[Rfam]
RNA sequence: CUCUUAUCAAGAGAGGUGGAGGGAUAGGGCCCUACGAAACCCGGCAACCGGUGAGAAAUCACUAUGGUGCCAAUUCCUGCAAGUAUAUAGCUGUUUAGUAGUAUAUAUGUUGCAAGAUAAGAG
Numbered sequence: 001c002u003c004u005u006a007u008c009a010a011g012a013g014a015g016g017u018g019g020a021g022g023g024a025u026a027g028g029g030c031c032c033u034a035c036g037a038a039a040c041c042c043g044g045c046a047a048c049c050g051g052u053g054a055g056a057a058a059u060c061a062c063u064a065u066g067g068u069g070c071c072a073a074u075u076c077c078u079g080c081a082a083g084u085a086u087a088u089a090g091c092u093g094u095u096u097a098g099u100a101g102u103a104u105a106u107a108u109g110u111u112g113c114a115a116g117a118u119a120a121g122a123g
Base pairs, nucleotide, nucleotide: 001123002122003121004120005119006118007117008116013042015041016040017039021032022031023030027078028077029076043071044070045069046068048067049066050063051062052061053060075115080112081111082110
Source information:
Shown here is a 123-nucleotide sequence from Clostridium cavendishii, a member of the family "SAM riboswitch aptamer (S box leader)". The family's consensus secondary structure is taken from published work. The SAM riboswitch is found upstream of a number of genes which code for proteins involved in methionine or cysteine biosynthesis in Gram-positive bacteria.